[Rfam]
RNA sequence: CCCCCGCCAUCCCAGUGUUCAGACUAGCUGUUCAGCAGGCUGUGGUAUGUACAGUAGUCUGCACAUUGGUUAGGCUGGGCG
Numbered sequence: 001c002c003c004c005c006g007c008c009a010u011c012c013c014a015g016u017g018u019u020c021a022g023a024c025u026a027g028c029u030g031u032u033c034a035g036c037a038g039g040c041u042g043u044g045g046u047a048u049g050u051a052c053a054g055u056a057g058u059c060u061g062c063a064c065a066u067u068g069g070u071u072a073g074g075c076u077g078g079g080c081g
Stems, first nucleotide, its partner, number of pairs: 012069007020061007028054004033049002
Dot-bracket structure: ...........(((((((.(((((((.((((.((.............)).))))))))))).)))))))............